[Rfam]
RNA sequence: AAAGGAGCAAUAUCAACACUCUUGAUAGAACAAGAAAUUGGUUAUUGUUUCUUUGUUU
Numbered sequence: 001a002a003a004g005g006a007g008c009a010a011u012a013u014c015a016a017c018a019c020u021c022u023u024g025a026u027a028g029a030a031c032a033a034g035a036a037a038u039u040g041g042u043u044a045u046u047g048u049u050u051c052u053u054u055g056u057u058u
Stems, first nucleotide, its partner, number of pairs: 001054012014041001020035005
The record is a 58-nucleotide sequence from Hibiscus trionum, which matches "Plastid-psbA-3 3UTR RNA" in Rfam. The family is grouped with related families in Rfam's "Plastid-psbA 3UTR RNA clan". A search with the family's covariance model found it, with a score of 58 bits. Lineage of the source: Eukaryota > Viridiplantae > malvids > Malvaceae > Hibiscus. The family's RNA type in Rfam is cis-regulatory element. About the family: Plastid psbA-3 is a non-coding RNA (ncRNA) present in plastids.